[Rfam]
RNA sequence: UGGCUUGGUUUCCUGGGGAGUGGGCUCAGUGUACUCCACCCCUUCUCAGCUAAGCCUAGAGUAUAGGGGCCAGGUAUGCACUGUUGUGGGAGAGGUGCUUCAGCAGGAGCCUUGCCUGGGCUGUCCUAGCCUCACAAUU
Numbered sequence: 001u002g003g004c005u006u007g008g009u010u011u012c013c014u015g016g017g018g019a020g021u022g023g024g025c026u027c028a029g030u031g032u033a034c035u036c037c038a039c040c041c042c043u044u045c046u047c048a049g050c051u052a053a054g055c056c057u058a059g060a061g062u063a064u065a066g067g068g069g070c071c072a073g074g075u076a077u078g079c080a081c082u083g084u085u086g087u088g089g090g091a092g093a094g095g096u097g098c099u100u101c102a103g104c105a106g107g108a109g110c111c112u113u114g115c116c117u118g119g120g121c122u123g124u125c126c127u128a129g130c131c132u133c134a135c136a137a138u139u
Stems, first nucleotide, its partner, number of pairs: 002056006015044004020039005066133005072127003079119001088112003
Notes: Shown here is a 139-nucleotide RNA sequence from Rattus norvegicus, a member of the family "Small Cajal body specific RNA 21". scaRNAs are a specific class of small nuclear RNAs which localise to the Cajal bodies and guide the modification of RNA polymerase II transcribed spliceosomal RNAs U1, U2, U4, U5 and U12. ACA68 (SCARNA21) is a member of the H/ACA class of snoRNAs that guide the sites of modification of uridines to pseudouridines. This snoRNA was identified by computational screening and its expression in mouse experimentally verified by Northern blot and primer extension analysis. ACA68 is proposed to guide the pseudouridylation of residue U19 in U12 snRNA.